Shown here is a 66-nucleotide RNA from Prunella fulvescens, a member of the family "Small nucleolar RNA SNORD42". It is annotated as a C/D-box small nucleolar RNA. Rfam links the family to the GO terms nucleolus and RNA processing. Rfam 15.1 lists 848 matches to the family in 572 species. About the family: snoRNA U42 is found in intron 3 of the ribosomal protein L23a (RPL23a) gene in humans and is also present in mice. The literature on the family includes a 2002 paper in Mol Cell Biol by Galardi et al., "Purified box C/D snoRNPs are able to reproduce site-specific 2'-O-methylation of target RNA in vitro". A search with the family's covariance model found it, with a score of 59 bits. Lineage of the source: Eukaryota > Teleostomi > Sauria > Saurischia > Prunella.
RNA sequence: GUGCAAAUGAUGUAAACUUUAAUUUCACUGAGUAAUGUGAUGCUUCCAAAGGAACCACUGAUGCAC
Dot-bracket structure: (((((........................................................)))))